[Rfam]
RNA sequence: CAGUAGAUGCACCCUGAUAACUAACCCCCCCUAGUUGGCUAACACUGCUAGGGGUUUUUUCU
Numbered sequence: 001c002a003g004u005a006g007a008u009g010c011a012c013c014c015u016g017a018u019a020a021c022u023a024a025c026c027c028c029c030c031c032u033a034g035u036u037g038g039c040u041a042a043c044a045c046u047g048c049u050a051g052g053g054g055u056u057u058u059u060u061c062u
Base pairs, nucleotide, nucleotide: 003012004011028054029053030052031051032050033049034048036047037046038045
Shown here is a 62-nucleotide RNA sequence from Richelia sinica, a member of the family "Nitrogen stress-induced RNA 1". For this family Rfam cites "Heterocyst-specific transcription of NsiR1, a non-coding RNA encoded in a tandem array of direct repeats in cyanobacteria" (Ionescu et al., J Mol Biol, 2010). The source organism's lineage runs through Bacteria, Cyanobacteriota, Cyanophyceae, Richelia and Richelia sinica. A search with the family's covariance model found it, with a score of 60 bits. The base pairs follow the family's consensus structure.